[Rfam]
Shown here is an 80-nucleotide RNA from Portunus trituberculatus, a member of the family "mir-981 microRNA precursor family". Its family is annotated with miRNA-mediated post-transcriptional gene silencing and RISC complex in the Gene Ontology. The base pairs follow the family's consensus structure, which was predicted with RNAalifold. A reference for the family is Ruby et al. (2007), "Evolution, biogenesis, expression, and target predictions of a substantially expanded set of Drosophila microRNAs", Genome Res. The organism belongs to Portunus, within Eukaryota.

RNA sequence: GUUGGACACUUCAGGUUUCGCGAUCUUCGAACUCUGUUUCAUUAAUGGUUCGUUGUCGUCGAAACCUGCAAUGUUGCAAC
Numbered sequence: 001g002u003u004g005g006a007c008a009c010u011u012c013a014g015g016u017u018u019c020g021c022g023a024u025c026u027u028c029g030a031a032c033u034c035u036g037u038u039u040c041a042u043u044a045a046u047g048g049u050u051c052g053u054u055g056u057c058g059u060c061g062a063a064a065c066c067u068g069c070a071a072u073g074u075u076g077c078a079a080c
Base pairs, nucleotide, nucleotide: 001080002079003078005075012068013067014066015065016064017063018062019061020060029051030050031049032048033047